[Rfam]
RNA sequence: UGCAACCUUCGGGGCGUGGUGAAAUUCCACACCGGCGGUGAUACGUUUGGGGGCAUGUCCAUUGCUUCCGGAUCGUUCAGUCCGUGACCCGUUUUGAAGCUCAAAGGUACCUGACUUACAGCUUCUCUACGGCUGACCCGGUGCAAUUCCGGGACCGACAGUAUAGUCUGGAUGGGAGAAGGAGAAC
Numbered sequence: 001u002g003c004a005a006c007c008u009u010c011g012g013g014g015c016g017u018g019g020u021g022a023a024a025u026u027c028c029a030c031a032c033c034g035g036c037g038g039u040g041a042u043a044c045g046u047u048u049g050g051g052g053g054c055a056u057g058u059c060c061a062u063u064g065c066u067u068c069c070g071g072a073u074c075g076u077u078c079a080g081u082c083c084g085u086g087a088c089c090c091g092u093u094u095u096g097a098a099g100c101u102c103a104a105a106g107g108u109a110c111c112u113g114a115c116u117u118a119c120a121g122c123u124u125c126u127c128u129a130c131g132g133c134u135g136a137c138c139c140g141g142u143g144c145a146a147u148u149c150c151g152g153g154a155c156c157g158a159c160a161g162u163a164u165a166g167u168c169u170g171g172a173u174g175g176g177a178g179a180a181g182g183a184g185a186a187c
Stems, first nucleotide, its partner, number of pairs: 006182005017029003031167002033157002035085004089132004137153005159170003

Rfam assigns this 187-nucleotide RNA sequence from Paenibacillus sedimenti to the family "FMN riboswitch aptamer (RFN element)". Gene Ontology term of the family: FMN binding. Lineage of the source: Bacteria > Bacillota > Caryophanales > Paenibacillaceae > Paenibacillus.